The record is a 74-nucleotide sequence from Esox lucius, which matches "mir-216 microRNA precursor family" in Rfam. The match comes from Rfam's covariance-model search (58 bits). For this family Rfam cites "Identification of novel chicken microRNAs and analysis of their genomic organization" (Shao et al., Gene, 2008).

RNA sequence: GGACUGGGUAAUCUCUGCAGGCAAUUGUGAUGUCCUAUUGUUUCUCACAUUGACCUGAAGAGGUUCUGCAGUCU
Numbered sequence: 001g002g003a004c005u006g007g008g009u010a011a012u013c014u015c016u017g018c019a020g021g022c023a024a025u026u027g028u029g030a031u032g033u034c035c036u037a038u039u040g041u042u043u044c045u046c047a048c049a050u051u052g053a054c055c056u057g058a059a060g061a062g063g064u065u066c067u068g069c070a071g072u073c074u
Stems, first nucleotide, its partner, number of pairs: 003072004010065007020056002024051001026049005